[Rfam]
A member of the RNA family "Archaeal large subunit ribosomal RNA" from a halophilic archaeon, 356 nucleotides of a longer RNA. Pairs were carried over by alignment from the consensus structure, which is taken from published work.
RNA sequence: CAUAGUAGCAGCGUGAGUCGGGUUAGACCCCCGACGGCCUGAAGAGUAAGGGUUCCUCGGCAAUGCUGAUCAGCCGAGGGUUAGCCGAUCCUAAGUCUCACCGUAGAUCGAAUGAGACGACAGGGAAACUGGUUAAUAUUCCAGUGCCAUCACCGUUGAAAGUUGACGCUUUGGGGCAGGUCGAGCCGGGCUUUCGCCCGGUCGAACCGUCAAAAUCCGUGGACGCCGUAAUGGCAGGAAGCGGACGAACGGCGGGAUAGCGCAAGUCGACUCAACCUAGAGCCCGUGAAAAAACGAGCACGGUGAUCGUACCGAGAUCCGACACAGGUACUCUGGCGGCGAAAGCCAAGGUCUGU
Numbered sequence: 001c002a003u004a005g006u007a008g009c010a011g012c013g014u015g016a017g018u019c020g021g022g023u024u025a026g027a028c029c030c031c032c033g034a035c036g037g038c039c040u041g042a043a044g045a046g047u048a049a050g051g052g053u054u055c056c057u058c059g060g061c062a063a064u065g066c067u068g069a070u071c072a073g074c075c076g077a078g079g080g081u082u083a084g085c086c087g088a089u090c091c092u093a094a095g096u097c098u099c100a101c102c103g104u105a106g107a108u109c110g111a112a113u114g115a116g117a118c119g120a121c122a123g124g125g126a127a128a129c130u131g132g133u134u135a136a137u138a139u140u141c142c143a144g145u146g147c148c149a150u151c152a153c154c155g156u157u158g159a160a161a162g163u164u165g166a167c168g169c170u171u172u173g174g175g176g177c178a179g180g181u182c183g184a185g186c187c188g189g190g191c192u193u194u195c196g197c198c199c200g201g202u203c204g205a206a207c208c209g210u211c212a213a214a215a216u217c218c219g220u221g222g223a224c225g226c227c228g229u230a231a232u233g234g235c236a237g238g239a240a241g242c243g244g245a246c247g248a249a250c251g252g253c254g255g256g257a258u259a260g261c262g263c264a265a266g267u268c269g270a271c272u273c274a275a276c277c278u279a280g281a282g283c284c285c286g287u288g289a290a291a292a293a294a295c296g297a298g299c300a301c302g303g304u305g306a307u308c309g310u311a312c313c314g315a316g317a318u319c320c321g322a323c324a325c326a327g328g329u330a331c332u333c334u335g336g337c338g339g340c341g342a343a344a345g346c347c348a349a350g351g352u353c354u355g356u
Stems, first nucleotide, its partner, number of pairs: 017035006036353004044333004050313002055079006064072002086309003090124002095118006102110002128145005148305004155301001162295003168283008179272005185202005207255004216245005224237001225235003261266001319328002334348004
A reference for the family is Cannone et al. (2002), "The comparative RNA web (CRW) site: an online database of comparative sequence and structure information for ribosomal, intron, and other RNAs", BMC Bioinformatics.